[Rfam]
RNA sequence: CCGGCUCCGGUUCACCUCCGCAGAUCAACCGCGAGGACCCGGCGGCC
Numbered sequence: 001c002c003g004g005c006u007c008c009g010g011u012u013c014a015c016c017u018c019c020g021c022a023g024a025u026c027a028a029c030c031g032c033g034a035g036g037a038c039c040c041g042g043c044g045g046c047c
Stems, first nucleotide, its partner, number of pairs: 003047003007042004015036004020032002023029001

Rfam assigns this 47-nucleotide RNA sequence from Saccharothrix tamanrassetensis to the family "L31-Actinobacteria ribosomal protein leader".
Taxonomically the source falls in Saccharothrix (Bacteria, Actinomycetota, Actinomycetes, Pseudonocardiaceae).
A search with the family's covariance model found it, with a score of 50 bits.
On this family, see Eckert and Weinberg, BMC Microbiol 2020: "Discovery of 20 novel ribosomal leader candidates in bacteria and archaea".